RNA sequence: UGUGGGAGUGAGAUUGGGACUAACUGUUUUCAUGCUGCCAUCUGUUGUGGCAGGAAAUCAAUUUUUAAGUCAGUCUUUUUCUCUCUCCUAUC
Numbered sequence: 001u002g003u004g005g006g007a008g009u010g011a012g013a014u015u016g017g018g019a020c021u022a023a024c025u026g027u028u029u030u031c032a033u034g035c036u037g038c039c040a041u042c043u044g045u046u047g048u049g050g051c052a053g054g055a056a057a058u059c060a061a062u063u064u065u066u067a068a069g070u071c072a073g074u075c076u077u078u079u080u081c082u083c084u085c086u087c088c089u090a091u092c
Base pairs, nucleotide, nucleotide: 002091003090004089005088006087007086008085010083011082012081013080016077017076018075019074020073021072023070024069025068
Shown here is a 92-nucleotide RNA sequence from Clunio marinus, a member of the family "mir-14 microRNA precursor family". Pairs were carried over by alignment from the consensus structure, which was predicted with RNAalifold.